[Rfam]
RNA sequence: UUUUAAUAACAUCUCCGAACCUGGCGAUCUAAAGCUAUUAGCUAUGAUUUCCAGGUCGUUAGGGUAUAUAAGGAAACAGGUAUGCCUCCCGGCUUGGAAAGGAGAUAAACAAUAUGAUUA
Numbered sequence: 001u002u003u004u005a006a007u008a009a010c011a012u013c014u015c016c017g018a019a020c021c022u023g024g025c026g027a028u029c030u031a032a033a034g035c036u037a038u039u040a041g042c043u044a045u046g047a048u049u050u051c052c053a054g055g056u057c058g059u060u061a062g063g064g065u066a067u068a069u070a071a072g073g074a075a076a077c078a079g080g081u082a083u084g085c086c087u088c089c090c091g092g093c094u095u096g097g098a099a100a101g102g103a104g105a106u107a108a109a110c111a112a113u114a115u116g117a118u119u120a
Base pairs, nucleotide, nucleotide: 003114011106012105013104014103015102016101019056020055021054022053023052024051026049027048028047029046033043034042035041036040062087063086064085065084066083067082068081069080072077088097089096
The family of this 120-nucleotide RNA sequence from Pelotomaculum isophthalicicum is "Molybdenum/Tungsten riboswitch aptamer (Moco RNA motif)". The base pairs follow the family's consensus structure, which is taken from published work. The match comes from Rfam's covariance-model search (77 bits).